RNA sequence: AUGUGUUAGAGGUCUUUUAAAAUUUGUCUAGCAGGUUUUCCAAUAUUUAUUGGAAGCCCUC
Numbered sequence: 001a002u003g004u005g006u007u008a009g010a011g012g013u014c015u016u017u018u019a020a021a022a023u024u025u026g027u028c029u030a031g032c033a034g035g036u037u038u039u040c041c042a043a044u045a046u047u048u049a050u051u052g053g054a055a056g057c058c059c060u061c
Base pairs, nucleotide, nucleotide: 034058035057036056037055038054040053041052042051043050044049